[Rfam]
RNA sequence: AGGCCCGCGAGGGGGUGUGCGGUAGAAGCCGUAGGUGCGAACACCUGUCGAACGAGAGUGAAACGCCGUAAGGCGUGUGCGGCGGAUGAGCCCGCUCCCAGGGGCGAAAUCCGAUAUUUGCCGCUGGCCGCAUGCGUAGUGGCGACGACAGGGGAUCGAAGUUUGCGUG
Numbered sequence: 001a002g003g004c005c006c007g008c009g010a011g012g013g014g015g016u017g018u019g020c021g022g023u024a025g026a027a028g029c030c031g032u033a034g035g036u037g038c039g040a041a042c043a044c045c046u047g048u049c050g051a052a053c054g055a056g057a058g059u060g061a062a063a064c065g066c067c068g069u070a071a072g073g074c075g076u077g078u079g080c081g082g083c084g085g086a087u088g089a090g091c092c093c094g095c096u097c098c099c100a101g102g103g104g105c106g107a108a109a110u111c112c113g114a115u116a117u118u119u120g121c122c123g124c125u126g127g128c129c130g131c132a133u134g135c136g137u138a139g140u141g142g143c144g145a146c147g148a149c150a151g152g153g154g155a156u157c158g159a160a161g162u163u164u165g166c167g168u169g
Stems, first nucleotide, its partner, number of pairs: 001016001004013003030169003035163001041156001044153002046150005064144004073137003077133007084112004090105004
The family of this 169-nucleotide sequence from Ramlibacter sp. WS9 is "Group II catalytic intron D1-D4-3". A search with the family's covariance model found it, with a score of 66 bits.